[Rfam]
RNA sequence: GCUUUUAAUACACCGCAGCAAUAACAGGUUGAGUUAUCUCAACACAAAGUAAUAACCGUUAAGGGUGUAGCCUAUGAUCAACACAAAUAUGAAAUAUUGGUCCUGGAUGGGCGCGUUUUCUCUGUCAAUGCUCUUCUGGGCUGAACUCCUCUGGAUCAUUACUCACUAAUCCCUGACCCCGCUGCGGCGGGGGUUUUCAUUUGC
Numbered sequence: 001g002c003u004u005u006u007a008a009u010a011c012a013c014c015g016c017a018g019c020a021a022u023a024a025c026a027g028g029u030u031g032a033g034u035u036a037u038c039u040c041a042a043c044a045c046a047a048a049g050u051a052a053u054a055a056c057c058g059u060u061a062a063g064g065g066u067g068u069a070g071c072c073u074a075u076g077a078u079c080a081a082c083a084c085a086a087a088u089a090u091g092a093a094a095u096a097u098u099g100g101u102c103c104u105g106g107a108u109g110g111g112c113g114c115g116u117u118u119u120c121u122c123u124g125u126c127a128a129u130g131c132u133c134u135u136c137u138g139g140g141c142u143g144a145a146c147u148c149c150u151c152u153g154g155a156u157c158a159u160u161a162c163u164c165a166c167u168a169a170u171c172c173c174u175g176a177c178c179c180c181g182c183u184g185c186g187g188c189g190g191g192g193g194u195u196u197u198c199a200u201u202u203g204c
Stems, first nucleotide, its partner, number of pairs: 010068005018059002029042005100141003105131001107129002110126004142158003146154002175194001177192006

The family of this 204-nucleotide RNA sequence from Escherichia coli is "Enterobacterial sRNA STnc180".
It is one of the family's seed sequences.
Pairs were carried over by alignment from the consensus structure, which was predicted with RNAalifold.
The source organism's lineage runs through Bacteria, Pseudomonadati, Enterobacterales, Enterobacteriaceae and Escherichia coli.
The family's RNA type in Rfam is small RNA.